[Rfam]
RNA sequence: AAAUAUUUUUUCAAUAUAAACCACUCAUGUUGAUAAAACGAUUUGAGCCAUUU
Numbered sequence: 001a002a003a004u005a006u007u008u009u010u011u012c013a014a015u016a017u018a019a020a021c022c023a024c025u026c027a028u029g030u031u032g033a034u035a036a037a038a039c040g041a042u043u044u045g046a047g048c049c050a051u052u053u
Stems, first nucleotide, its partner, number of pairs: 011033007
RNA: Plastid-atpF group II-D1 intron
Organism: Gossypium stocksii